The record is a 387-nucleotide sequence from Tsuneonella dongtanensis, which matches "Bacterial RNase P class A" in Rfam.
[Rfam]
RNA sequence: CCAGGGGGCCGGGCAGCCGCGUGCGCCGCAAGGUGCUCGAGGAAAGUCCGGGCUCCACGAAACAAGGGUGGCGGGUAACGCCCGCCGCGGGCAACCGUAGGGAAAGUGCCACAGAAAGUAGACCGCCUCUCUCGAGAGGUAAGGCUGAAAGGGUGCGGUAAGAGCGCACCGGGGUCCUGGUAACAGGGCUCGCACGGCAAACCCCACCCGGAGCAAGGCCAAAUAGGGGUCUCGCGCGAAAGCAGGGGCGUUUCGUCCCGAGAGACCCGGGUUGGCUGCUUGAGCCGCGCGGCAACGCACGGCCGAGAUGAAUGGCUGCCCCGGCGGCGUGGGUCCUUCGGGAUACCGCCCGCCGGACAGAACCCGGCUUACAGGCCCCCUGGCGAU
Numbered sequence: 001c002c003a004g005g006g007g008g009c010c011g012g013g014c015a016g017c018c019g020c021g022u023g024c025g026c027c028g029c030a031a032g033g034u035g036c037u038c039g040a041g042g043a044a045a046g047u048c049c050g051g052g053c054u055c056c057a058c059g060a061a062a063c064a065a066g067g068g069u070g071g072c073g074g075g076u077a078a079c080g081c082c083c084g085c086c087g088c089g090g091g092c093a094a095c096c097g098u099a100g101g102g103a104a105a106g107u108g109c110c111a112c113a114g115a116a117a118g119u120a121g122a123c124c125g126c127c128u129c130u131c132u133c134g135a136g137a138g139g140u141a142a143g144g145c146u147g148a149a150a151g152g153g154u155g156c157g158g159u160a161a162g163a164g165c166g167c168a169c170c171g172g173g174g175u176c177c178u179g180g181u182a183a184c185a186g187g188g189c190u191c192g193c194a195c196g197g198c199a200a201a202c203c204c205c206a207c208c209c210g211g212a213g214c215a216a217g218g219c220c221a222a223a224u225a226g227g228g229g230u231c232u233c234g235c236g237c238g239a240a241a242g243c244a245g246g247g248g249c250g251u252u253u254c255g256u257c258c259c260g261a262g263a264g265a266c267c268c269g270g271g272u273u274g275g276c277u278g279c280u281u282g283a284g285c286c287g288c289g290c291g292g293c294a295a296c297g298c299a300c301g302g303c304c305g306a307g308a309u310g311a312a313u314g315g316c317u318g319c320c321c322c323g324g325c326g327g328c329g330u331g332g333g334u335c336c337u338u339c340g341g342g343a344u345a346c347c348g349c350c351c352g353c354c355g356g357a358c359a360g361a362a363c364c365c366g367g368c369u370u371a372c373a374g375g376c377c378c379c380c381u382g383g384c385g386a387u
Stems, first nucleotide, its partner, number of pairs: 001383010011372001012320007020039002023036005044370003048367005053213004062253001064251001066209005071085005086100001087098004101204002106202002108198003123144002125140006152170006171193001172191008217277004227268006245259005284303004289298003
The organism belongs to Tsuneonella, within Bacteria.